Rfam assigns this 183-nucleotide RNA sequence from Eolophus roseicapilla to the family "U1 spliceosomal RNA". Lineage of the source: Eukaryota > Vertebrata > Theropoda > Australaves > Eolophus. The family's consensus secondary structure is taken from published work. It scores 107 bits against the family's covariance model. U1 is a small nuclear RNA (snRNA) component of the spliceosome (involved in pre-mRNA splicing). Its 5' end forms complementary base pairs with the 5' splice junction, thus defining the 5' donor site of an intron. There are significant differences in sequence and secondary structure between metazoan and yeast U1 snRNAs, the latter being much longer (568 nucleotides as compared to 164 nucleotides in human). Nevertheless, secondary structure predictions suggest that all U1 snRNAs share a 'common core' consisting of helices I, II, the proximal region of III, and IV. This family does not contain the larger yeast sequences.
RNA sequence: AUACUUGCCUGGCAGGGGAGUCACCAUGAUCAGGCAGGUGGUUUUCCCAGGGCAGGGCUCAUUCACUGCACUCCGGGUGUGCUGACCCUUGCGAUUUCCCCAACUGCGGGAAACUCAACUGCAUAAUUUGAAGUAGUGGGGGACUCUCACUGCUACAAGGGAGAUCAUUCAUGCUCUCCCUUG
Numbered sequence: 001a002u003a004c005u006u007g008c009c010u011g012g013c014a015g016g017g018g019a020g021u022c023a024c025c026a027u028g029a030u031c032a033g034g035c036a037g038g039u040g041g042u043u044u045u046c047c048c049a050g051g052g053c054a055g056g057g058c059u060c061a062u063u064c065a066c067u068g069c070a071c072u073c074c075g076g077g078u079g080u081g082c083u084g085a086c087c088c089u090u091g092c093g094a095u096u097u098c099c100c101c102a103a104c105u106g107c108g109g110g111a112a113a114c115u116c117a118a119c120u121g122c123a124u125a126a127u128u129u130g131a132a133g134u135a136g137u138g139g140g141g142g143a144c145u146c147u148c149a150c151u152g153c154u155a156c157a158a159g160g161g162a163g164a165u166c167a168u169u170c171a172u173g174c175u176c177u178c179c180c181u182u183g
Stems, first nucleotide, its partner, number of pairs: 012122004016048005023042005049090004056083003060079005093116002095113003099109002138182006